[Rfam]
RNA: transfer-messenger RNA
RNA sequence: GGGGGCGACUUGGCUUCGACAGCAGAUACAAACCCUCAAGUGCAUGUCGAGAAGGUAGUAAUUCUCGUAAAUAAAUUGCUGCAAACUUGUUAGUUGGCGAAAACGCAGACUACGCUUUAGCCGCUUAAUUGGCUAACUGUCCUUGGUAACGUGCUCGUGCGCCUCCAAAGACAGACGACUACACGAGAUGCUGGAAUUGUUCUUCUCAUUGACAAUUUCUUAAGAAUUAAAUUGAGAUCGUUUUUUGAUCCCUGUUUAUCGGGUGUAAAAGAUUAAAUUAAUAGAUAAAACUAAACAUGUAGAUCUUGUGGCAGAGUACUGAUGGACGCGGGUUCAAUUCCCGCCGCCUCCACCA
Numbered sequence: 001g002g003g004g005g006c007g008a009c010u011u012g013g014c015u016u017c018g019a020c021a022g023c024a025g026a027u028a029c030a031a032a033c034c035c036u037c038a039a040g041u042g043c044a045u046g047u048c049g050a051g052a053a054g055g056u057a058g059u060a061a062u063u064c065u066c067g068u069a070a071a072u073a074a075a076u077u078g079c080u081g082c083a084a085a086c087u088u089g090u091u092a093g094u095u096g097g098c099g100a101a102a103a104c105g106c107a108g109a110c111u112a113c114g115c116u117u118u119a120g121c122c123g124c125u126u127a128a129u130u131g132g133c134u135a136a137c138u139g140u141c142c143u144u145g146g147u148a149a150c151g152u153g154c155u156c157g158u159g160c161g162c163c164u165c166c167a168a169a170g171a172c173a174g175a176c177g178a179c180u181a182c183a184c185g186a187g188a189u190g191c192u193g194g195a196a197u198u199g200u201u202c203u204u205c206u207c208a209u210u211g212a213c214a215a216u217u218u219c220u221u222a223a224g225a226a227u228u229a230a231a232u233u234g235a236g237a238u239c240g241u242u243u244u245u246u247g248a249u250c251c252c253u254g255u256u257u258a259u260c261g262g263g264u265g266u267a268a269a270a271g272a273u274u275a276a277a278u279u280a281a282u283a284g285a286u287a288a289a290a291c292u293a294a295a296c297a298u299g300u301a302g303a304u305c306u307u308g309u310g311g312c313a314g315a316g317u318a319c320u321g322a323u324g325g326a327c328g329c330g331g332g333u334u335c336a337a338u339u340c341c342c343g344c345c346g347c348c349u350c351c352a353c354c355a
Base pairs, nucleotide, nucleotide: 001351002350003349004348005347006346007345020324021323023321024320025319033311034310037308038307039306040305043299044298045297046296047295048067049066050065051064052063054080055079056078057077058076059075117136118135119134120133121132122131123130137174138173139172140171141170144167145166146165151162154187155186156185157184158183159182193219194218195217196216197215198214199213200212201211203237204236206234241271242270243269244268245267248264250263251262252261254291255290256289257288258286259285260284328344329343330342331341332340